c-di-GMP-I riboswitch aptamer: a 91-nucleotide RNA from Paenibacillus sp. FSL H7-0737.
RNA sequence: UCAUGAUAAUAGCAAACCGCCUGAAAGGGUGGGACGCAAAGUCCAGGAGUCUAAAGUGUCUUAAAUGCGCUAUGACCGUCCGACUGCCAUG
Numbered sequence: 001u002c003a004u005g006a007u008a009a010u011a012g013c014a015a016a017c018c019g020c021c022u023g024a025a026a027g028g029g030u031g032g033g034a035c036g037c038a039a040a041g042u043c044c045a046g047g048a049g050u051c052u053a054a055a056g057u058g059u060c061u062u063a064a065a066u067g068c069g070c071u072a073u074g075a076c077c078g079u080c081c082g083a084c085u086g087c088c089a090u091g
Base pairs, nucleotide, nucleotide: 012037013036017032018031019030020029021028022027040085041084042083043082046081047080048079049076050075051074056070057069058068059067